[Rfam]
RNA sequence: AAAUACUCCCAUCAAGACAGUAGUUCCCCAACCAGGAGCAACUUUACCAUACUCCGAAUUU
Numbered sequence: 001a002a003a004u005a006c007u008c009c010c011a012u013c014a015a016g017a018c019a020g021u022a023g024u025u026c027c028c029c030a031a032c033c034a035g036g037a038g039c040a041a042c043u044u045u046a047c048c049a050u051a052c053u054c055c056g057a058a059u060u061u
Stems, first nucleotide, its partner, number of pairs: 017045001019043003023039005

Notes
The family of this 61-nucleotide sequence from Pleurocapsa sp. CCALA 161 is "Plastid-psbN 5UTR RNA". Taxonomically the source falls in Pleurocapsa (Bacteria, Bacillati, Cyanophyceae, Pleurocapsales). Plastid psbN is a non-coding RNA (ncRNA) recognised in plastids. It was reported as a conserved 11 stem-loop in the prime untranslated region (5UTR) of psbN genes. It has been reported that the motif is retained in a subset of mature transcripts in barley, which can suggests a possible role in transcript alternative 5 prime processing. On this family, see Richter et al., Plant Commun 2023: "Retrograde signaling in plants: A critical review focusing on the GUN pathway and beyond".